RNA sequence: CCAAUCCUGAUGUGUACGUUGUUACAAUGUACGUUUUGACCGAACAUUUUUGAGAAGGGAGCUCGACGUUUUCGCGUGGAAUGCACGCCUCUUAACCAUCAUUGAUGGGAGGACGCAAGAAGCGCGAAACAGGGCACCCACCUGCCUAGUGCGGGUUCAAAACUCAUGAUACAACGGCACAAUUGGGAUUGGU
Numbered sequence: 001c002c003a004a005u006c007c008u009g010a011u012g013u014g015u016a017c018g019u020u021g022u023u024a025c026a027a028u029g030u031a032c033g034u035u036u037u038g039a040c041c042g043a044a045c046a047u048u049u050u051u052g053a054g055a056a057g058g059g060a061g062c063u064c065g066a067c068g069u070u071u072u073c074g075c076g077u078g079g080a081a082u083g084c085a086c087g088c089c090u091c092u093u094a095a096c097c098a099u100c101a102u103u104g105a106u107g108g109g110a111g112g113a114c115g116c117a118a119g120a121a122g123c124g125c126g127a128a129a130c131a132g133g134g135c136a137c138c139c140a141c142c143u144g145c146c147u148a149g150u151g152c153g154g155g156u157u158c159a160a161a162a163c164u165c166a167u168g169a170u171a172c173a174a175c176g177g178c179a180c181a182a183u184u185g186g187g188a189u190u191g192g193u
Stems, first nucleotide, its partner, number of pairs: 002191010012180004017176003033163007040155002057139003061135004071128007083116002088112007
The family of this 193-nucleotide RNA from Halobacillus yeomjeoni is "6S / SsrS RNA". NCBI's taxonomy places the organism under Bacteria, Bacillati, Bacilli, Caryophanales, Halobacillus. A search with the family's covariance model found it, with a score of 108 bits. Rfam's curators write: E. coli 6S RNA was the first non coding RNA to be sequenced, but its function was unknown until recently. A reference for the family is Chen et al. (2017), "6S RNA Mimics B-Form DNA to Regulate Escherichia coli RNA Polymerase", Molecular Cell.